A member of the RNA family "ZMP/ZTP riboswitch aptamer (pfl RNA motif)" from Nonomuraea sp. C10, 84 nucleotides long. The organism belongs to Nonomuraea, within Bacteria. A search with the family's covariance model found it, with a score of 49 bits.
Nucleotides: 084
Base pairs, nucleotide, nucleotide: 004055009050010049011048012047015044016043017072018071019070020069021068027040028039029038030037061079062078063077064076065075
Number, partner (000 for none) and nucleotide at each position: 001000c002000a003000a004055u005000g006000a007000c008000g009050u010049c011048g012047c013000g014000a015044c016043u017072g018071g019070c020069g021068c022000a023000u024000c025000a026000g027040g028039u029038g030037g031000g032000a033000a034000c035000g036000a037030c038029c039028a040027c041000c042000g043016g044015g045000g046000a047012g048011c049010g050009g051000g052000a053000a054000g055004g056000a057000g058000c059000g060000g061079a062078g063077g064076c065075c066000g067000g068021g069020c070019g071018c072017c073000u074000g075065g076064g077063u078062c079061u080000u081000c082000g083000c084000a